[Rfam]
RNA sequence: UCGACACCACGCAACUGGCGUUCAAGGGCCUGCGCAAUGCAGGCCUGAGGUGGGCAACCACCAGGGAGCGUGGACCACAACGGCUGUCGAGCCUUGUCGGUUUUAGCCGUGCGCCUGGGCAGCCCCA
Numbered sequence: 001u002c003g004a005c006a007c008c009a010c011g012c013a014a015c016u017g018g019c020g021u022u023c024a025a026g027g028g029c030c031u032g033c034g035c036a037a038u039g040c041a042g043g044c045c046u047g048a049g050g051u052g053g054g055c056a057a058c059c060a061c062c063a064g065g066g067a068g069c070g071u072g073g074a075c076c077a078c079a080a081c082g083g084c085u086g087u088c089g090a091g092c093c094u095u096g097u098c099g100g101u102u103u104u105a106g107c108c109g110u111g112c113g114c115c116u117g118g119g120c121a122g123c124c125c126c127a
Stems, first nucleotide, its partner, number of pairs: 007073006015065002017115005050061004104122001106120003
A member of the RNA family "ZMP/ZTP riboswitch aptamer (pfl RNA motif)" from Leptothrix cholodnii, 127 nucleotides long.
The family's consensus secondary structure is taken from published work.